[Rfam]
RNA: Y RNA-like
RNA sequence: GUGGCGAAUGCCCGCGGGACUACAUCGGACCUUGAGGGUCGCCGGUUCGACUCCGGCCGGGGCUUCGGCCCCGUAGCUCAGCGGUUAGAGCAUCAGGCUGUCUCGCACCCAAUCGUCGCCACGAC
Numbered sequence: 001g002u003g004g005c006g007a008a009u010g011c012c013c014g015c016g017g018g019a020c021u022a023c024a025u026c027g028g029a030c031c032u033u034g035a036g037g038g039u040c041g042c043c044g045g046u047u048c049g050a051c052u053c054c055g056g057c058c059g060g061g062g063c064u065u066c067g068g069c070c071c072c073g074u075a076g077c078u079c080a081g082c083g084g085u086u087a088g089a090g091c092a093u094c095a096g097g098c099u100g101u102c103u104c105g106c107a108c109c110c111a112a113u114c115g116u117c118g119c120c121a122c123g124a125c
Base pairs, nucleotide, nucleotide: 002121003120004119005118006117007116014106015105016104017103018102019101023096034094035093041057042056043055044054045053058073059072060071061070062069063068076091077090078089079088